The family of this 71-nucleotide RNA from Alligator mississippiensis is "Mammalian CPEB3 ribozyme". Taxonomically the source falls in Alligator (Eukaryota, Metazoa, Euteleostomi, Alligatorinae). A search with the family's covariance model found it, with a score of 39 bits. The base pairs follow the family's consensus structure, which is taken from published work.
RNA sequence: CAAGUUCAAAGACAUAGCAGAAGCACUCACAGUGUGGCCUGUUAGAUUCCAACAAAUCUAUGAAUUCUGCU
Numbered sequence: 001c002a003a004g005u006u007c008a009a010a011g012a013c014a015u016a017g018c019a020g021a022a023g024c025a026c027u028c029a030c031a032g033u034g035u036g037g038c039c040u041g042u043u044a045g046a047u048u049c050c051a052a053c054a055a056a057u058c059u060a061u062g063a064a065u066u067c068u069g070c071u
Stems, first nucleotide, its partner, number of pairs: 011038001013036001016071007023035003043060006